[Rfam]
RNA sequence: UGUCAUUAACCCGUAGAUCCGAUCUUGUGAAAAGUUCGAUGGCACAAGCUUGUUUCUAUGGGUCUCUGUCUC
Numbered sequence: 001u002g003u004c005a006u007u008a009a010c011c012c013g014u015a016g017a018u019c020c021g022a023u024c025u026u027g028u029g030a031a032a033a034g035u036u037c038g039a040u041g042g043c044a045c046a047a048g049c050u051u052g053u054u055u056c057u058a059u060g061g062g063u064c065u066c067u068g069u070c071u072c
Base pairs, nucleotide, nucleotide: 002070004068005067010062011061012060015057016056017055020052021051022050024048025047026046027045028044029043